Overview
This 265-nucleotide RNA from Dasyornis broadbenti belongs to the Rfam family "Metazoan signal recognition particle RNA". Gene Ontology terms of the family: signal recognition particle, endoplasmic reticulum targeting and SRP-dependent cotranslational protein targeting to membrane, signal sequence recognition. A reference for the family is Wild et al. (2002), "Towards the structure of the mammalian signal recognition particle", Curr Opin Struct Biol. About the family: The signal recognition particle (SRP) is a universally conserved ribonucleoprotein.
RNA sequence: GCCGGGGAGGCUGAGCCCGACGGAUCGCUUGAGCCCAGGAGUUCUGGGCUGCCGUGCGCUGUGCCGAGCGGGCGUCCAAGCUAAGGCCGCCAUCAAUAUGGUGACCCGCGGGGAGCUGCGGGACACCAGGUUGACUAAGGAGGGGUGAACCGGCCCAGGUCGGAGACGGAGCAGGUCAAAGCUCCCGUGGCGGUCAGUAGCGGGAUCGCGCCUGUGAAUAGCCACUGCAGCGUAGCCUGGGCAACACAGAGACACGCGGGCUCCC
Numbered sequence: 001g002c003c004g005g006g007g008a009g010g011c012u013g014a015g016c017c018c019g020a021c022g023g024a025u026c027g028c029u030u031g032a033g034c035c036c037a038g039g040a041g042u043u044c045u046g047g048g049c050u051g052c053c054g055u056g057c058g059c060u061g062u063g064c065c066g067a068g069c070g071g072g073c074g075u076c077c078a079a080g081c082u083a084a085g086g087c088c089g090c091c092a093u094c095a096a097u098a099u100g101g102u103g104a105c106c107c108g109c110g111g112g113g114a115g116c117u118g119c120g121g122g123a124c125a126c127c128a129g130g131u132u133g134a135c136u137a138a139g140g141a142g143g144g145g146u147g148a149a150c151c152g153g154c155c156c157a158g159g160u161c162g163g164a165g166a167c168g169g170a171g172c173a174g175g176u177c178a179a180a181g182c183u184c185c186c187g188u189g190g191c192g193g194u195c196a197g198u199a200g201c202g203g204g205a206u207c208g209c210g211c212c213u214g215u216g217a218a219u220a221g222c223c224a225c226u227g228c229a230g231c232g233u234a235g236c237c238u239g240g241g242c243a244a245c246a247c248a249g250a251g252a253c254a255c256g257c258g259g260g261c262u263c264c265c
Stems, first nucleotide, its partner, number of pairs: 013263007025252002028249002033242007044235003048231005054225003058222005064216001068215008076204002080201004085195009094133004099128005105122007135139001142185005152177004160169003